[Rfam]
Rfam assigns this 158-nucleotide RNA from Pseudomonas sp. HAR-UPW-AIA-41 to the family "FMN riboswitch aptamer (RFN element)". The family's consensus secondary structure is taken from published work. It scores 105 bits against the family's covariance model. The RFN element is a highly conserved domain that is found frequently in the 5'-untranslated regions of prokaryotic mRNAs that encode for flavin mononucleotide (FMN) biosynthesis and transport proteins. The organism belongs to Pseudomonas, within Bacteria.
RNA sequence: UAACGUUCUCAGGGCGGGGUGCAAUUCCCCACCGGCGGUAAUGCAGCGCAAGGCUGCUAGCCCGCGAGCGCUCCCACGGCUUACCCGCCGACGGAGGUCAGCAGACCCGGUGUGAUUCCGGGGCCGACGGUCAUAGUCCGGAUAAAGAGAGAGCGGGA
Number, nucleotide and partner (000 for none) at each position: 001u000002a000003a000004c155005g154006u153007u152008c151009u150010c149011a000012g000013g000014g000015c000016g000017g029018g028019g027020u000021g000022c000023a000024a000025u000026u000027c019028c018029c017030c000031a137032c136033c126034g125035g065036c064037g063038g062039u000040a000041a000042u000043g000044c000045a000046g000047c000048g000049c000050a000051a000052g000053g000054c000055u000056g000057c000058u000059a000060g124061c123062c038063c037064g036065c035066g000067a000068g102069c101070g000071c000072u000073c000074c000075c000076a000077c000078g000079g000080c000081u000082u000083a000084c000085c000086c000087g000088c000089c000090g000091a000092c000093g000094g000095a000096g000097g000098u000099c000100a000101g069102c068103a000104g000105a000106c122107c121108c120109g119110g118111u000112g000113u000114g000115a000116u000117u000118c110119c109120g108121g107122g106123g061124c060125c034126g033127a000128c140129g139130g138131u000132c000133a000134u000135a000136g032137u031138c130139c129140g128141g000142a000143u000144a000145a000146a000147g000148a000149g010150a009151g008152a007153g006154c005155g004156g000157g000158a000